[Rfam]
A member of the RNA family "Mammalian CPEB3 ribozyme" from Liparis tanakae, 75 nucleotides long. The base pairs follow the family's consensus structure, which is taken from published work. The match comes from Rfam's covariance-model search (40 bits). Rfam's curators write: The mammalian CPEB3 ribozyme is a self cleaving RNA located in the second intron of the CPEB3 gene which belongs to a family of genes regulating messenger RNA polyadenylation.
RNA sequence: CAACCAGGUGAGGGGAUCAUGGUAGAAGCGUUCACGUUCAUCCCUGUCAGGUCUCACAAACCUGCGAAUUCUACC
Numbered sequence: 001c002a003a004c005c006a007g008g009u010g011a012g013g014g015g016a017u018c019a020u021g022g023u024a025g026a027a028g029c030g031u032u033c034a035c036g037u038u039c040a041u042c043c044c045u046g047u048c049a050g051g052u053c054u055c056a057c058a059a060a061c062c063u064g065c066g067a068a069u070u071c072u073a074c075c
Base pairs, nucleotide, nucleotide: 013044014043015042016041017040021075022074023073024072025071026070027069030038048064049063050062051061052060054058